[Rfam]
RNA sequence: UCACCCCGCGUGGGAGAGACCGGCAAGCCCGUCCCGGGUUUGUUGCCGGCGCCGAAGGGGCAAACUCCCCGGAACCUCUCAGGCACCAGGACCACGCGGAGCAG
Numbered sequence: 001u002c003a004c005c006c007c008g009c010g011u012g013g014g015a016g017a018g019a020c021c022g023g024c025a026a027g028c029c030c031g032u033c034c035c036g037g038g039u040u041u042g043u044u045g046c047c048g049g050c051g052c053c054g055a056a057g058g059g060g061c062a063a064a065c066u067c068c069c070c071g072g073a074a075c076c077u078c079u080c081a082g083g084c085a086c087c088a089g090g091a092c093c094a095c096g097c098g099g100a101g102c103a104g
Stems, first nucleotide, its partner, number of pairs: 006099008020049007051084003054080002058078003065071001
RNA: Glycine riboswitch aptamer